Notes: A member of the RNA family "Group II catalytic intron D1-D4-1" from Pedobacter hiemivivus, 77 nucleotides long. Gene Ontology term of the family: Group II intron splicing. The pairing is the family consensus, mapped onto this sequence. A reference for the family is Bonen and Vogel (2001), "The ins and outs of group II introns", Trends Genet. A search with the family's covariance model found it, with a score of 60 bits. Rfam describes the family as follows. Group II introns are found in rRNA, tRNA and mRNA of organelles in fungi, plants and protists, and also in mRNA in bacteria.
RNA sequence: CAAGGUUCUGUAGCAAUACACAACUGGCCCCGCAGAAGUCAGCAGAGGCCAUAGUACUUUUUUUUAGAAGGAAGGGC
Numbered sequence: 001c002a003a004g005g006u007u008c009u010g011u012a013g014c015a016a017u018a019c020a021c022a023a024c025u026g027g028c029c030c031c032g033c034a035g036a037a038g039u040c041a042g043c044a045g046a047g048g049c050c051a052u053a054g055u056a057c058u059u060u061u062u063u064u065u066a067g068a069a070g071g072a073a074g075g076g077c
Stems, first nucleotide, its partner, number of pairs: 001026002005024003009020004039046002048077003057070005